[Rfam]
RNA sequence: CCCCUUUCAUUCGCCGGCGUAAAAGCCUAUAUGCAUGGGUGCUGGGCAACCAGCUAUGGCAAUAAAUGGUCAGUGCAAUAAACCUAUCGGACCCGGGGGCGGUACCCGGCGCCUCCACCCAAGUGCAGACCCGGCUGCGGUUUGGAAACUGCAUUUCGGCGGGGGCGAAACAGGAUCGACGAGGGCGUAAAGACUGUGCUUUUGCUCGGCAUUGUACCACCGUUAUCGGGCUCUCUUAAUAGUUGCAAACGACAACUAUGCUAUGGACAACGCUGUCGCUGCGUAAUGCGGUGCCGGUAGUCCUUUAAAGCCCUGCUGGGUAGCACCGGCAGGCGGGGUCCGGAGGCACCUGGCAACAGAAGCCUCCACU
Numbered sequence: 001c002c003c004c005u006u007u008c009a010u011u012c013g014c015c016g017g018c019g020u021a022a023a024a025g026c027c028u029a030u031a032u033g034c035a036u037g038g039g040u041g042c043u044g045g046g047c048a049a050c051c052a053g054c055u056a057u058g059g060c061a062a063u064a065a066a067u068g069g070u071c072a073g074u075g076c077a078a079u080a081a082a083c084c085u086a087u088c089g090g091a092c093c094c095g096g097g098g099g100c101g102g103u104a105c106c107c108g109g110c111g112c113c114u115c116c117a118c119c120c121a122a123g124u125g126c127a128g129a130c131c132c133g134g135c136u137g138c139g140g141u142u143u144g145g146a147a148a149c150u151g152c153a154u155u156u157c158g159g160c161g162g163g164g165g166c167g168a169a170a171c172a173g174g175a176u177c178g179a180c181g182a183g184g185g186c187g188u189a190a191a192g193a194c195u196g197u198g199c200u201u202u203u204g205c206u207c208g209g210c211a212u213u214g215u216a217c218c219a220c221c222g223u224u225a226u227c228g229g230g231c232u233c234u235c236u237u238a239a240u241a242g243u244u245g246c247a248a249a250c251g252a253c254a255a256c257u258a259u260g261c262u263a264u265g266g267a268c269a270a271c272g273c274u275g276u277c278g279c280u281g282c283g284u285a286a287u288g289c290g291g292u293g294c295c296g297g298u299a300g301u302c303c304u305u306u307a308a309a310g311c312c313c314u315g316c317u318g319g320g321u322a323g324c325a326c327c328g329g330c331a332g333g334c335g336g337g338g339u340c341c342g343g344a345g346g347c348a349c350c351u352g353g354c355a356a357c358a359g360a361a362g363c364c365u366c367c368a369c370u
Stems, first nucleotide, its partner, number of pairs: 041054005058206005068199001071196004083185003087182003093109005110167007207222003214231001217229002336351004342367006